[Rfam]
RNA sequence: UCCCGAUGAUGAAUUGCCAUGCUAAUACUGAGCCACCAUGUAGGGCAUUCUUGCCCUAGUUUGGGUGUCAGUGAGUUUAACAAUACUUCUAACAUGGAGAUCUGAGGGAC
Numbered sequence: 001u002c003c004c005g006a007u008g009a010u011g012a013a014u015u016g017c018c019a020u021g022c023u024a025a026u027a028c029u030g031a032g033c034c035a036c037c038a039u040g041u042a043g044g045g046c047a048u049u050c051u052u053g054c055c056c057u058a059g060u061u062u063g064g065g066u067g068u069c070a071g072u073g074a075g076u077u078u079a080a081c082a083a084u085a086c087u088u089c090u091a092a093c094a095u096g097g098a099g100a101u102c103u104g105a106g107g108g109a110c
Stems, first nucleotide, its partner, number of pairs: 001109004041058005

This 110-nucleotide RNA from Dipodomys ordii belongs to the Rfam family "Small nucleolar RNA U6-53/MBII-28". Rfam links the family to the GO terms RNA processing and nucleolus. For this family Rfam cites "RNomics: an experimental approach that identifies 201 candidates for novel, small, non-messenger RNAs in mouse" (Huttenhofer et al., EMBO J, 2001). The family has 25 seed sequences and 780 matches in Rfam 15.1.